[Rfam]
RNA sequence: UUCUUAUUGUAUGACAUGUGUCAUGUGUGUCAUGUUCUGAUUGGAUGUCAACUCCAUAAAAGAUGAAAUGCAUUGUUAUUUUUAUUAACUAAUCAGAACAUGACACACAUGAGACGUGACAGUCUUCAUCC
Numbered sequence: 001u002u003c004u005u006a007u008u009g010u011a012u013g014a015c016a017u018g019u020g021u022c023a024u025g026u027g028u029g030u031c032a033u034g035u036u037c038u039g040a041u042u043g044g045a046u047g048u049c050a051a052c053u054c055c056a057u058a059a060a061a062g063a064u065g066a067a068a069u070g071c072a073u074u075g076u077u078a079u080u081u082u083u084a085u086u087a088a089c090u091a092a093u094c095a096g097a098a099c100a101u102g103a104c105a106c107a108c109a110u111g112a113g114a115c116g117u118g119a120c121a122g123u124c125u126u127c128a129u130c131c
Base pairs, nucleotide, nucleotide: 020120021119022118023117025115026114031102032101033100035098036097037096038095040093041092042091
The family of this 131-nucleotide RNA from Glycine max is "MIR1520 microRNA precursor family".
Taxonomically the source falls in Glycine subgen. Soja (Eukaryota, Viridiplantae, Tracheophyta, Fabales).
The family's consensus secondary structure was predicted with RNAalifold.
Rfam 15.1 lists 1,934 matches to the family in 15 species.